A member of the RNA family "Small nucleolar RNA SNORD14" from Paramuricea clavata, 96 nucleotides long. U14 small nucleolar RNA (U14 snoRNA) is required for early cleavages of eukaryotic precursor rRNAs. In yeasts, this molecule possess a stem-loop region (known as the Y-domain) which is essential for function. It scores 65 bits against the family's covariance model. Lineage of the source: Eukaryota > Eumetazoa > Malacalcyonacea > Plexauridae > Paramuricea. Rfam classes the family as a C/D-box small nucleolar RNA. The family's consensus secondary structure was predicted with PFOLD.

[Rfam]
RNA sequence: UCAGAAUGAUGAUGUUUACCCAUAUAUUCGCAGUUUCCACCAAAGUGAUGCUUUGUCAUUUCGAUGAUGGUUAAUCUUCCUUGGAUGUCUGACUGA
Numbered sequence: 001u002c003a004g005a006a007u008g009a010u011g012a013u014g015u016u017u018a019c020c021c022a023u024a025u026a027u028u029c030g031c032a033g034u035u036u037c038c039a040c041c042a043a044a045g046u047g048a049u050g051c052u053u054u055g056u057c058a059u060u061u062c063g064a065u066g067a068u069g070g071u072u073a074a075u076c077u078u079c080c081u082u083g084g085a086u087g088u089c090u091g092a093c094u095g096a
Base pairs, nucleotide, nucleotide: 001096002095003094004093047060048059049058050057